[Rfam]
Record summary:
This 76-nucleotide sequence from Capra hircus belongs to the Rfam family "mir-30 microRNA precursor family". Pairs were carried over by alignment from the consensus structure, which was predicted with PFOLD. Gene Ontology terms of the family: gene silencing by miRNA and RISC complex. Rfam 15.1 lists 3,879 matches to the family in 647 species. From the family's description: This family consists of the mammalian microRNA (miRNA) precursor mir-30a.
RNA sequence: UCUGUUGUUGUAAACAUCCCCGACUGGAAGCUGUUCCACACAGCUAAGCUUUCAGUCAGAUGUUUGCUGCUACCGG
Numbered sequence: 001u002c003u004g005u006u007g008u009u010g011u012a013a014a015c016a017u018c019c020c021c022g023a024c025u026g027g028a029a030g031c032u033g034u035u036c037c038a039c040a041c042a043g044c045u046a047a048g049c050u051u052u053c054a055g056u057c058a059g060a061u062g063u064u065u066g067c068u069g070c071u072a073c074c075g076g
Base pairs, nucleotide, nucleotide: 002075004073005072008069010067011066012065013064014063015062016061017060018059023056024055025054026053027052028051029050030049031048032047
Overview: Rfam's curators put it in the seed alignment.